[Rfam]
RNA sequence: UAAUUAAUUAAGGGGCAACCCUUAACUGGCCGACUGGGGAAAGGCCGAGAGGACCAAGCCCAGGGGGCAGAAAGUCUUACGGAGUAGCGCUAAAAUCGUAGGGCGGAAGGCAUGGCGGUAGCGCAUACAACGACGUGCCAA
Numbered sequence: 001u002a003a004u005u006a007a008u009u010a011a012g013g014g015g016c017a018a019c020c021c022u023u024a025a026c027u028g029g030c031c032g033a034c035u036g037g038g039g040a041a042a043g044g045c046c047g048a049g050a051g052g053a054c055c056a057a058g059c060c061c062a063g064g065g066g067g068c069a070g071a072a073a074g075u076c077u078u079a080c081g082g083a084g085u086a087g088c089g090c091u092a093a094a095a096u097c098g099u100a101g102g103g104c105g106g107a108a109g110g111c112a113u114g115g116c117g118g119u120a121g122c123g124c125a126u127a128c129a130a131c132g133a134c135g136u137g138c139c140a141a
Stems, first nucleotide, its partner, number of pairs: 008025007026070003030067002034063005043054001045052002074104008087124005109139006116132002
A member of the RNA family "IMES-2 RNA motif", 141 nucleotides long. By type it is a non-coding RNA gene.